The family of this 64-nucleotide sequence from Neotoma lepida is "mir-344 microRNA precursor family". Its family is annotated with RISC complex and miRNA-mediated post-transcriptional gene silencing in the Gene Ontology. The literature on the family includes a 2010 paper in Genes Dev by Chiang et al., "Mammalian microRNAs: experimental evaluation of novel and previously annotated genes". The family's consensus secondary structure was predicted with RNAalifold.
RNA sequence: UUACCAGCCAGGCUCCUGGCUAAUUCCAGCUCUUAGCUGGAAAUAUCCAAAACCUGGCUGUAAA
Numbered sequence: 001u002u003a004c005c006a007g008c009c010a011g012g013c014u015c016c017u018g019g020c021u022a023a024u025u026c027c028a029g030c031u032c033u034u035a036g037c038u039g040g041a042a043a044u045a046u047c048c049a050a051a052a053c054c055u056g057g058c059u060g061u062a063a064a
Stems, first nucleotide, its partner, number of pairs: 007058003011054002014051001017049003021045002026040005

About this RNA: The source organism's lineage runs through Eukaryota, Gnathostomata, Teleostomi, Boreoeutheria and Neotoma. It scores 54 bits against the family's covariance model.